[Rfam]
The family of this 71-nucleotide sequence from Microcaecilia unicolor is "Small nucleolar RNA SNORD19".
Its Rfam clan is "SNORD19 clan".
For this family Rfam cites "RNomics: an experimental approach that identifies 201 candidates for novel, small, non-messenger RNAs in mouse" (Huttenhofer et al., EMBO J, 2001).
Rfam classes the family as a C/D-box small nucleolar RNA.
It scores 48 bits against the family's covariance model.
Rfam 15.1 lists 1,431 matches to the family in 609 species.
The source organism's lineage runs through Eukaryota, Eumetazoa, Chordata, Craniata and Microcaecilia.
RNA sequence: GAGAAGUGAGGAUAUUAAUGUUGUCUGAUAUCAGUGAAGACUGUCAGAUCCAACUCUGAUCUCGCUCUGCU
Numbered sequence: 001g002a003g004a005a006g007u008g009a010g011g012a013u014a015u016u017a018a019u020g021u022u023g024u025c026u027g028a029u030a031u032c033a034g035u036g037a038a039g040a041c042u043g044u045c046a047g048a049u050c051c052a053a054c055u056c057u058g059a060u061c062u063c064g065c066u067c068u069g070c071u
Stems, first nucleotide, its partner, number of pairs: 001063004